[Rfam]
RNA: SAM (S-adenosyl methionine) riboswitch aptamer
Organism: Terrabacter aerolatus
RNA sequence: GGUCAAGAGGCGCGACCGUUACCCACCUUGGAGGGGUCGCCCGGCAACCGGUCCGCCCCGGUGCCGUCCAAGGAAGACCCGGCCGCGCCGGCAUCCGUCGGUCUGGCCAGAGCGGGCC
Numbered sequence: 001g002g003u004c005a006a007g008a009g010g011c012g013c014g015a016c017c018g019u020u021a022c023c024c025a026c027c028u029u030g031g032a033g034g035g036g037u038c039g040c041c042c043g044g045c046a047a048c049c050g051g052u053c054c055g056c057c058c059c060g061g062u063g064c065c066g067u068c069c070a071a072g073g074a075a076g077a078c079c080c081g082g083c084c085g086c087g088c089c090g091g092c093a094u095c096c097g098u099c100g101g102u103c104u105g106g107c108c109a110g111a112g113c114g115g116g117c118c
Stems, first nucleotide, its partner, number of pairs: 001079004009042001012040006022033001043065003048061003082107004087102005